[Rfam]
RNA sequence: CAGCUGGUAUUCAUUGUGAAACCAGACAUACUUUUAUUUUAUUAAUUUUGUUUAUUCGACUUAUAUCCCAUUACGGGAAUGAGAACGGGGG
Numbered sequence: 001c002a003g004c005u006g007g008u009a010u011u012c013a014u015u016g017u018g019a020a021a022c023c024a025g026a027c028a029u030a031c032u033u034u035u036a037u038u039u040u041a042u043u044a045a046u047u048u049u050g051u052u053u054a055u056u057c058g059a060c061u062u063a064u065a066u067c068c069c070a071u072u073a074c075g076g077g078a079a080u081g082a083g084a085a086c087g088g089g090g091g
Stems, first nucleotide, its partner, number of pairs: 003027001004025005010020002057087002060083005066078003
RNA: pan motif
Organism: Ruminiclostridium cellulolyticum